[Rfam]
Source information: The record is a 377-nucleotide RNA sequence from Pacificibacter maritimus, which matches "Alphaproteobacteria transfer-messenger RNA" in Rfam. From the family's description: Bacterial tmRNA, also known as 10Sa RNA or SsrA, is named for its dual tRNA and mRNA-like properties. The family's consensus secondary structure is taken from published work. The family's RNA type in Rfam is non-coding RNA gene. On this family, see Felden et al., RNA 1997: "Probing the structure of the Escherichia coli 10Sa RNA (tmRNA)". NCBI's taxonomy places the organism under Bacteria, Pseudomonadati, Alphaproteobacteria, Roseobacteraceae, Pacificibacter.
RNA sequence: CCACUUGCAGCUUGGAACACCAGCACCUAUAUCUGUGCUGUCGGGCUUGCUCGACUAUGAACAUAAACGCGCUCGCAAUAAGCGGAUCGGACCAGGGGGCGGUACCCUGCGUCUCCACCAAUCACUCCCGCACAUCGCCUUCAUUUGAGGCAUGGAUGGGGCACAUGGGGACGAAAUAGGAUCGACGGACGUCUAAAGGGGUUAGCUUUGUUUCGGUGAGUUACCACCGUUAUCGGUACACAAUGAGUAGUUGCAAAUGACAACAAAGCUCCAAUGGCUCUCGCAGCGUAAGCUGUGCGAAACAUUGAAAUCUUAAGCCCUGUCGCCUAGCAGCGUCAGGCGGGGUUCGCAGGUACCUGGCAACAGAAACCUGCACU
Dot-bracket structure: .......................................(((((......)))))...(((((.....((((((........((..(((...(((((.......)))))(((((((..................................................)))))))............))).)).......))))..))..)))))((((..[[.[[[)))).....]]]]].......................................................................................................[[[[..((((((]]]]..........))))))...